[Rfam]
Rfam assigns this 148-nucleotide sequence from Campylobacter fetus to the family "Bacterial antisense RNA HPnc0260". A search with the family's covariance model found it, with a score of 61 bits. The base pairs follow the family's consensus structure, which was predicted with CMfinder. Taxonomically the source falls in Campylobacter fetus subsp. fetus (Bacteria, Campylobacterales, Campylobacter, Campylobacter fetus). For this family Rfam cites "The primary transcriptome of the major human pathogen Helicobacter pylori" (Sharma et al., Nature, 2010).
Nucleotides: 148
Stems, first nucleotide, its partner, number of pairs: 021043002027040004059069002110145003114141002119138002122136004
Number, partner (000 for none) and nucleotide at each position: 001000u002000g003000c004000a005000u006000a007000a008000a009000a010000a011000a012000c013000u014000a015000a016000g017000a018000a019000a020000a021043u022042g023000u024000a025000a026000g027040c028039a029038u030037u031000c032000u033000c034000a035000a036000g037030a038029a039028u040027g041000g042022c043021a044000a045000a046000a047000g048000c049000c050000u051000u052000u053000c054000a055000a056000a057000c058000g059069c060068u061000g062000c063000a064000a065000a066000u067000a068060a069059g070000u071000a072000c073000u074000u075000c076000u077000g078000a079000g080000a081000a082000c083000u084000g085000u086000a087000a088000g089000g090000a091000a092000a093000u094000a095000u096000u097000a098000a099000g100000a101000a102000u103000a104000a105000c106000u107000u108000a109000g110145u111144g112143g113000u114141g115140g116000c117000u118000c119138u120137a121000a122136c123135u124134g125133g126000a127000c128000u129000c130000g131000a132000a133125c134124c135123a136122g137120u138119g139000a140115c141114c142000c143112c144111c145110a146000c147000c148000a